[Rfam]
RNA sequence: GAAAUGCUGUAUGAUGAUACAAUGAGUGAUCCAUCGGCUGACAAAUAAUGCUGAUACAUUUGUUUUCUGACAGCAUUUG
Number, nucleotide and partner (000 for none) at each position: 001g000002a078003a077004a076005u075006g074007c073008u072009g068010u000011a000012u000013g031014a030015u029016g000017a027018u000019a000020c000021a000022a000023u000024g000025a000026g000027u017028g000029a015030u014031c013032c000033a000034u054035c053036g052037g051038c050039u000040g000041a000042c000043a000044a000045a000046u000047a000048a000049u000050g038051c037052u036053g035054a034055u000056a000057c000058a000059u000060u000061u000062g000063u000064u000065u000066u000067c000068u009069g000070a000071c000072a008073g007074c006075a005076u004077u003078u002079g000
RNA: Small nucleolar RNA SNORD71